[Rfam]
RNA sequence: UCUGCCUGGCCCACUGGCCGGGAAUGUGCACCUAGAUUGUUUUGGGCUCGAGUGGGUGUGUCAGAGG
Numbered sequence: 001u002c003u004g005c006c007u008g009g010c011c012c013a014c015u016g017g018c019c020g021g022g023a024a025u026g027u028g029c030a031c032c033u034a035g036a037u038u039g040u041u042u043u044g045g046g047c048u049c050g051a052g053u054g055g056g057u058g059u060g061u062c063a064g065a066g067g
Stems, first nucleotide, its partner, number of pairs: 001065004006060001009057006015050002017047003021043005026037001029035001
RNA: mir-1180 microRNA precursor family
Organism: Ailuropoda melanoleuca